[Rfam]
The record is a 73-nucleotide sequence from Claviceps purpurea, which matches "bZIP non canonical Hac1/Xbp1 intron" in Rfam.
NCBI's taxonomy places the organism under Eukaryota, saccharomyceta, sordariomyceta, Hypocreomycetidae, Claviceps purpurea.
From the family's description: bZIP intron RNA is a non-canonical intron that was first reported in HAC1 gene in yeast and XBP1 gene in Metazoa.
The family's consensus secondary structure was predicted with RNAfold.
It scores 46 bits against the family's covariance model.
RNA sequence: CACCUCCCCCGAUCUGACACAACAUCCUGCUGAGAUGUUGUUCGACCUGCAGUGUCACACAUCGGGCGAGGUG
Numbered sequence: 001c002a003c004c005u006c007c008c009c010c011g012a013u014c015u016g017a018c019a020c021a022a023c024a025u026c027c028u029g030c031u032g033a034g035a036u037g038u039u040g041u042u043c044g045a046c047c048u049g050c051a052g053u054g055u056c057a058c059a060c061a062u063c064g065g066g067c068g069a070g071g072u073g
Base pairs, nucleotide, nucleotide: 001073002072003071004070005069006068009065010064011063012062013061021039022038023037024036025035026034044056045055046054